[Rfam]
Description: Shown here is a 100-nucleotide sequence from Uliginosibacterium sp. TH139, a member of the family "Burkholderia RNA 7 (anti-hemB)". Rfam's curators write: This RNA motif was identified by computational search in b-proteobacteria Burkholderia. Co-purified with Hfq, expression confirmed by Northern blot.
RNA sequence: CCUCCCGCUUCACCUCCCUGAGCGGGAACCUGAAUGAACUCCCCCGGGUCAUUCAGGUCAUUCCAGCCCCGGCGUGCCCCCUCGCGCCGGGGUUUAUUUU
Number, nucleotide and partner (000 for none) at each position: 001c000002c000003u000004c026005c025006c024007g023008c022009u021010u000011c000012a000013c000014c000015u000016c000017c000018c000019u000020g000021a009022g008023c007024g006025g005026g004027a000028a058029c057030c056031u055032g054033a053034a052035u051036g050037a049038a000039c000040u000041c000042c000043c000044c000045c000046g000047g000048g000049u037050c036051a035052u034053u033054c032055a031056g030057g029058u028059c000060a000061u000062u000063c000064c000065a000066g000067c092068c091069c090070c089071g088072g087073c086074g085075u084076g083077c000078c000079c000080c000081c000082u000083c076084g075085c074086g073087c072088c071089g070090g069091g068092g067093u000094u000095u000096a000097u000098u000099u000100u000

By type it is a small RNA.